A member of the RNA family "Glutamine-II riboswitch aptamer", 53 nucleotides long. The family's consensus secondary structure is taken from published work. Gene Ontology term of the family: glutamine binding. The sequence is in the family's curated seed alignment.
RNA sequence: GUCCGUUCAUCCUACGGGACGCAUGAAACCUAAGCAUGGAACGGGGCUUAGGU
Numbered sequence: 001g002u003c004c005g006u007u008c009a010u011c012c013u014a015c016g017g018g019a020c021g022c023a024u025g026a027a028a029c030c031u032a033a034g035c036a037u038g039g040a041a042c043g044g045g046g047c048u049u050a051g052g053u
Base pairs, nucleotide, nucleotide: 004043005042006041007040008039010019011018012017028053029052030051031050032049033048034047035046